[Rfam]
RNA sequence: UAGUUUCCUGCUUCAACGGUGUUUGAAUGGAACUCA
Numbered sequence: 001u002a003g004u005u006u007c008c009u010g011c012u013u014c015a016a017c018g019g020u021g022u023u024u025g026a027a028u029g030g031a032a033c034u035c036a
Stems, first nucleotide, its partner, number of pairs: 001036001003034001005032004010028001012027005017021001
A member of the RNA family "Iron response element I" from Tupaia belangeri, 36 nucleotides long. By type it is a cis-regulatory element. Taxonomically the source falls in Tupaia belangeri (Eukaryota, Bilateria, Tetrapoda, Mammalia). Rfam links the family to the GO term response to iron ion. On this family, see Hentze et al., Science 1987: "Identification of the iron-responsive element for the translational regulation of human ferritin mRNA".